[Rfam]
RNA sequence: CAGACUGUUGUCAGUGAUGGAACAUAGUUAAGCUGAAAUUCAUGAUUUAAUUCAGUUCAUUCGUCACUACCACUGAGACAACAGAUGG
Numbered sequence: 001c002a003g004a005c006u007g008u009u010g011u012c013a014g015u016g017a018u019g020g021a022a023c024a025u026a027g028u029u030a031a032g033c034u035g036a037a038a039u040u041c042a043u044g045a046u047u048u049a050a051u052u053c054a055g056u057u058c059a060u061u062c063g064u065c066a067c068u069a070c071c072a073c074u075g076a077g078a079c080a081a082c083a084g085a086u087g088g
Stems, first nucleotide, its partner, number of pairs: 001088001003086001005084008
Rfam assigns this 88-nucleotide RNA sequence from Pampusana beccarii to the family "Small nucleolar RNA SNORD70". The family's RNA type in Rfam is C/D-box small nucleolar RNA. It scores 62 bits against the family's covariance model. From the family's description: snoRNA HBII-234 belongs to the C/D family of snoRNAs. It is the human orthologue of the mouse MBII-234 and is predicted to guide 2'O-ribose methylation of the small 18S rRNA on position A512. It is hosted, together with HBII-95, by the core C/D box snoRNA protein encoding gene NOP5/NOP58.